[Rfam]
RNA: Lysine riboswitch aptamer
Organism: Salibacterium qingdaonense
RNA sequence: AGUGAGGUUAGAGGUGCGGAAACCAUCAGUAUGCGGCUGGAGGAGCAUGAGAUUCUGCGAAACCGCUGAAAGGGGAAUCCGCCGAAGCUGACAGCUUCUCAUGAGCUUGCAGCUGGUUAUGUAUUGAACAAAUACGUAACUGUCAUAUAGUGCGUCUGUGCUAUAUGGAGGGCUAUCUCACGC
Numbered sequence: 001a002g003u004g005a006g007g008u009u010a011g012a013g014g015u016g017c018g019g020a021a022a023c024c025a026u027c028a029g030u031a032u033g034c035g036g037c038u039g040g041a042g043g044a045g046c047a048u049g050a051g052a053u054u055c056u057g058c059g060a061a062a063c064c065g066c067u068g069a070a071a072g073g074g075g076a077a078u079c080c081g082c083c084g085a086a087g088c089u090g091a092c093a094g095c096u097u098c099u100c101a102u103g104a105g106c107u108u109g110c111a112g113c114u115g116g117u118u119a120u121g122u123a124u125u126g127a128a129c130a131a132a133u134a135c136g137u138a139a140c141u142g143u144c145a146u147a148u149a150g151u152g153c154g155u156c157u158g159u160g161c162u163a164u165a166u167g168g169a170g171g172g173c174u175a176u177c178u179c180a181c182g183c
Stems, first nucleotide, its partner, number of pairs: 006178002009175003016082005023075002033066004086114005093107005115141011143168009